[Rfam]
The record is a 133-nucleotide RNA sequence from Sphaeramia orbicularis, which matches "Small nucleolar RNA SNORA13" in Rfam.

RNA sequence: UGCCUUUAAGUGUUGCCCUUUCAUUUUUUCCCAUAGUGACUGGGGUGUCAAAUAAGGCAUAAAUUGACACUUGUGGCUGUUUUGUGAAGUGAGUUUUAAGUGACUCCUUGAAUAAACAGCUGCAUGGACACAC
Numbered sequence: 001u002g003c004c005u006u007u008a009a010g011u012g013u014u015g016c017c018c019u020u021u022c023a024u025u026u027u028u029u030c031c032c033a034u035a036g037u038g039a040c041u042g043g044g045g046u047g048u049c050a051a052a053u054a055a056g057g058c059a060u061a062a063a064u065u066g067a068c069a070c071u072u073g074u075g076g077c078u079g080u081u082u083u084g085u086g087a088a089g090u091g092a093g094u095u096u097u098a099a100g101u102g103a104c105u106c107c108u109u110g111a112a113u114a115a116a117c118a119g120c121u122g123c124a125u126g127g128a129c130a131c132a133c
Stems, first nucleotide, its partner, number of pairs: 002058005011050002014047004018042001021039005070126001072124002076120005085115001087113001090110001093104002
The family's consensus secondary structure was predicted with CMfinder. Rfam 15.1 lists 1,034 matches to the family in 605 species. Rfam describes the family as follows. ACA13 is a member of the H/ACA class of snoRNA that guide the sites of modification of uridines to pseudouridines.